RNA sequence: AUUAUACUUUAGGGGUGUCCCGGUCGGGACUGAGAAAUACCCUUUGAACCUGAUGCGGUUAGUACCGCCGAAGGGAAAAGUUGCAGAGUUCUA
Numbered sequence: 001a002u003u004a005u006a007c008u009u010u011a012g013g014g015g016u017g018u019c020c021c022g023g024u025c026g027g028g029a030c031u032g033a034g035a036a037a038u039a040c041c042c043u044u045u046g047a048a049c050c051u052g053a054u055g056c057g058g059u060u061a062g063u064a065c066c067g068c069c070g071a072a073g074g075g076a077a078a079a080g081u082u083g084c085a086g087a088g089u090u091c092u093a
Base pairs, nucleotide, nucleotide: 006081007080008079009078010077011043012042013041014040016037017030018029019028020027021026049074050073051072055068056067057066058065
Record summary:
This 93-nucleotide RNA from Marinigracilibium pacificum belongs to the Rfam family "TPP riboswitch aptamer (THI element)". The match comes from Rfam's covariance-model search (79 bits).